[Rfam]
RNA sequence: GGUGCGAACGGACGAUAGUCUUCAGCGGCCGUGCAUUUGAUAGAAUUGGUCGGUGGGACUUUCGUCCGUUUGUAAC
Number, nucleotide and partner (000 for none) at each position: 001g000002g000003u074004g073005c072006g071007a070008a000009c068010g067011g066012a065013c064014g063015a062016u000017a060018g059019u058020c057021u056022u000023c055024a054025g000026c052027g051028g050029c049030c048031g000032u000033g000034c000035a000036u000037u000038u000039g000040a000041u000042a000043g000044a000045a000046u000047u000048g030049g029050u028051c027052g026053g000054u024055g023056g021057g020058a019059c018060u017061u000062u015063c014064g013065u012066c011067c010068g009069u000070u007071u006072g005073u004074a003075a000076c000

mir-278 microRNA precursor family: a 76-nucleotide RNA sequence from Aedes aegypti. On this family, see Ruby et al., Genome Res 2007: "Evolution, biogenesis, expression, and target predictions of a substantially expanded set of Drosophila microRNAs".